[Rfam]
Nucleotides: 070
Stems, first nucleotide, its partner, number of pairs: 010025004016061006032051002035048005
Number, partner (000 for none) and nucleotide at each position: 001000a002000a003000a004000g005000c006000a007000c008000a009000a010025g011024g012023u013022g014000a015000u016061g017060g018059a019058g020057u021056u022013c023012g024011c025010c026000u027000g028000a029000a030000c031000c032051g033050c034000u035048c036047u037046g038045g039044c040000u041000u042000c043000u044039g045038c046037c047036g048035g049000c050033g051032c052000u053000g054000a055000u056021g057020a058019c059018u060017c061016c062000u063000a064000c065000g066000a067000u068000u069000c070000c